[Rfam]
A member of the RNA family "mir-2756 microRNA precursor family" from Diatraea saccharalis, 78 nucleotides long. NCBI's taxonomy places the organism under Eukaryota, Metazoa, Eumetazoa, Eumetabola, Diatraea. It scores 70 bits against the family's covariance model.
RNA sequence: UCGGUAGUAUACCCUGUAGCUGCUUAGGGGCGCAGUAAUCAUUCCUCCCCUGUGCCGCUACAUCGUAUGUUACUGCAC
Numbered sequence: 001u002c003g004g005u006a007g008u009a010u011a012c013c014c015u016g017u018a019g020c021u022g023c024u025u026a027g028g029g030g031c032g033c034a035g036u037a038a039u040c041a042u043u044c045c046u047c048c049c050c051u052g053u054g055c056c057g058c059u060a061c062a063u064c065g066u067a068u069g070u071u072a073c074u075g076c077a078c
Stems, first nucleotide, its partner, number of pairs: 002075011015062006022055002026051005032045001034043002